Rfam assigns this 254-nucleotide sequence from Pseudomonas fluorescens to the family "Pseudomonas sRNA P24". This small RNA (sRNA) was computationally identified in the genome of the opportunistic pathogen Pseudomonas aeruginosa and its expression verified by Northern blot analysis. P24 is conserved across several Pseudomonas species and in Azotobacter vinelandii. It appears to be consistently located between a hypothetical protein gene and a transcriptional regulator gene (AsnC family) in the genomes of all these species. P24 has a predicted Rho independent terminator at the 3' end but the function of P24 is unknown. Rfam classes the family as a non-coding RNA gene. A reference for the family is Livny et al. (2006), "Identification of 17 Pseudomonas aeruginosa sRNAs and prediction of sRNA-encoding genes in 10 diverse pathogens using the bioinformatic tool sRNAPredict2", Nucleic Acids Res.

RNA sequence: UUGCGCAAGUGGUGUUUUUACAAGCAAUCUUCGCAAUCCUCUGUCUUCGCUGCGCGCCUAUUCUUAUCACCAGAAUCACUGCCCGGACAUAGAGUCCACUGCGGCCCGGCGAAUCAGGCCUGCCGCGGCCGCCAAUCCCACAGGGUUGAGCCGGCCCCCGGGCUACACACUGUCCAGAAGACGGAGUGAGGUGAGCCGGCGUCAAAAGCGCCGAGCACGGACAAAAUCUCAAAGGGCGGCCGACGGGCCGCCCU
Numbered sequence: 001u002u003g004c005g006c007a008a009g010u011g012g013u014g015u016u017u018u019u020a021c022a023a024g025c026a027a028u029c030u031u032c033g034c035a036a037u038c039c040u041c042u043g044u045c046u047u048c049g050c051u052g053c054g055c056g057c058c059u060a061u062u063c064u065u066a067u068c069a070c071c072a073g074a075a076u077c078a079c080u081g082c083c084c085g086g087a088c089a090u091a092g093a094g095u096c097c098a099c100u101g102c103g104g105c106c107c108g109g110c111g112a113a114u115c116a117g118g119c120c121u122g123c124c125g126c127g128g129c130c131g132c133c134a135a136u137c138c139c140a141c142a143g144g145g146u147u148g149a150g151c152c153g154g155c156c157c158c159c160g161g162g163c164u165a166c167a168c169a170c171u172g173u174c175c176a177g178a179a180g181a182c183g184g185a186g187u188g189a190g191g192u193g194a195g196c197c198g199g200c201g202u203c204a205a206a207a208g209c210g211c212c213g214a215g216c217a218c219g220g221a222c223a224a225a226a227u228c229u230c231a232a233a234g235g236g237c238g239g240c241c242g243a244c245g246g247g248c249c250g251c252c253c254u
Stems, first nucleotide, its partner, number of pairs: 001012004043057002046054001076194005081163004085097004101126005108119001110117001127156005134147005166188003170184005195216002197213006233254004238249004